[Rfam]
RNA: mir-155 microRNA precursor family
Organism: Sander lucioperca
Nucleotides: 064
Base pairs, nucleotide, nucleotide: 004061005060006059007058008057009056010055011054012053013052014051020046021045022044023043025041026040
Number, partner (000 for none) and nucleotide at each position: 001000a002000g003000g004061u005060u006059a007058a008057u009056g010055c011054u012053a013052a014051u015000c016000g017000u018000g019000a020046u021045a022044g023043g024000g025041g026040u027000u028000g029000u030000g031000c032000a033000u034000u035000a036000c037000c038000g039000u040026a041025c042000a043023c044022c045021u046020a047000a048000c049000a050000u051014g052013u053012u054011a055010g056009c057008a058007u059006u060005a061004g062000c063000u064000u